Rfam assigns this 51-nucleotide sequence from Sulfitobacter sp. SK012 to the family "SAM/SAH riboswitch aptamer". A search with the family's covariance model found it, with a score of 54 bits. The source organism's lineage runs through Bacteria, Pseudomonadati, Alphaproteobacteria, Rhodobacterales and Sulfitobacter.
[Rfam]
RNA sequence: AGCUUGCCACAACGGCUUCCUGACGUGGCGAUACAUCUUAGUACUGGAGCA
Numbered sequence: 001a002g003c004u005u006g007c008c009a010c011a012a013c014g015g016c017u018u019c020c021u022g023a024c025g026u027g028g029c030g031a032u033a034c035a036u037c038u039u040a041g042u043a044c045u046g047g048a049g050c051a
Base pairs, nucleotide, nucleotide: 004031005030006029007028008027009026010025013022014021015050016049017048019047020046